[Rfam]
Annotation
The record is a 111-nucleotide sequence, which matches "Small nucleolar RNA snoR109" in Rfam. The family has 6 seed sequences and 680 matches in Rfam 15.1. Rfam links the family to the GO terms nucleolus and RNA processing. The literature on the family includes a 2002 paper in Curr Biol by Marker et al., "Experimental RNomics: identification of 140 candidates for small non-messenger RNAs in the plant Arabidopsis thaliana". By type it is an H/ACA-box small nucleolar RNA.
RNA sequence: UGGCUGUAGCUAUAUUGAAUUCAUGAGAAGUUAUCUGGCCGGUUGUUGUUUUUGGGAUCUCGAGAUCUCAAUCUUCCGUCGACACAUCUGCUUACCGAAUUUCUCACAUUC
Numbered sequence: 001u002g003g004c005u006g007u008a009g010c011u012a013u014a015u016u017g018a019a020u021u022c023a024u025g026a027g028a029a030g031u032u033a034u035c036u037g038g039c040c041g042g043u044u045g046u047u048g049u050u051u052u053u054g055g056g057a058u059c060u061c062g063a064g065a066u067c068u069c070a071a072u073c074u075u076c077c078g079u080c081g082a083c084a085c086a087u088c089u090g091c092u093u094a095c096c097g098a099a100u101u102u103c104u105c106a107c108a109u110u111c
Stems, first nucleotide, its partner, number of pairs: 025105008037092003041088003045083004